[Rfam]
RNA sequence: AAUUUGAUACAUUAUAUCACUCAUAUAAUCGCGUGGAUAUGGCACGCAAGUUUCUACCGGGCACCGUAAAUGUCCGACUAUGAGUGGGCGAUAAGAAAAC
Numbered sequence: 001a002a003u004u005u006g007a008u009a010c011a012u013u014a015u016a017u018c019a020c021u022c023a024u025a026u027a028a029u030c031g032c033g034u035g036g037a038u039a040u041g042g043c044a045c046g047c048a049a050g051u052u053u054c055u056a057c058c059g060g061g062c063a064c065c066g067u068a069a070a071u072g073u074c075c076g077a078c079u080a081u082g083a084g085u086g087g088g089c090g091a092u093a094a095g096a097a098a099a100c
Base pairs, nucleotide, nucleotide: 018086019085020084021083022082023081024080025079029049031047032046033045034044035043058076059075060074061073062072063071
Rfam assigns this 100-nucleotide RNA sequence from Bacillus licheniformis to the family "Purine riboswitch aptamer". Rfam describes the family as follows. Riboswitches are metabolite binding domains within certain messenger RNAs that serve as precision sensors for their corresponding targets. It is one of the family's seed sequences. Pairs were carried over by alignment from the consensus structure, which is taken from published work.